[Rfam]
RNA sequence: CCCAGAGGUAUUGAUAGGUGAGUUUCUUAGGUACGCUCUUCGUACUGAACGUCUUACACCGACCUGCGCGGAUGCGCAGGUUUUUUUU
Numbered sequence: 001c002c003c004a005g006a007g008g009u010a011u012u013g014a015u016a017g018g019u020g021a022g023u024u025u026c027u028u029a030g031g032u033a034c035g036c037u038c039u040u041c042g043u044a045c046u047g048a049a050c051g052u053c054u055u056a057c058a059c060c061g062a063c064c065u066g067c068g069c070g071g072a073u074g075c076g077c078a079g080g081u082u083u084u085u086u087u088u
Base pairs, nucleotide, nucleotide: 017060018059019058020057030046031045032044033043034042035041062081063080064079065078066077067076068075069074

Source information: OmrA-B family: an 88-nucleotide sequence from Klebsiella variicola. The sequence is in the family's curated seed alignment. The organism belongs to Klebsiella variicola, within Bacteria. The family's consensus secondary structure was predicted with WAR.